This 112-nucleotide sequence from Pseudomonas sp. StFLB209 belongs to the Rfam family "Pseudomon-groES RNA". The organism belongs to Pseudomonas, within Bacteria. The match comes from Rfam's covariance-model search (94 bits).

RNA sequence: CUAUGUGUCACCGCAAGGUUUCUGGCUCAGACGCCAGACCGUUUUCUGCGGUUCGCCUAUCGAACCGUAACCGGCAAGGCCGGAUUUUUAACUCGCCGGUGCCUUCACCGGA
Numbered sequence: 001c002u003a004u005g006u007g008u009c010a011c012c013g014c015a016a017g018g019u020u021u022c023u024g025g026c027u028c029a030g031a032c033g034c035c036a037g038a039c040c041g042u043u044u045u046c047u048g049c050g051g052u053u054c055g056c057c058u059a060u061c062g063a064a065c066c067g068u069a070a071c072c073g074g075c076a077a078g079g080c081c082g083g084a085u086u087u088u089u090a091a092c093u094c095g096c097c098g099g100u101g102c103c104u105u106c107a108c109c110g111g112a
Stems, first nucleotide, its partner, number of pairs: 010019003021038006047069009071083004096111005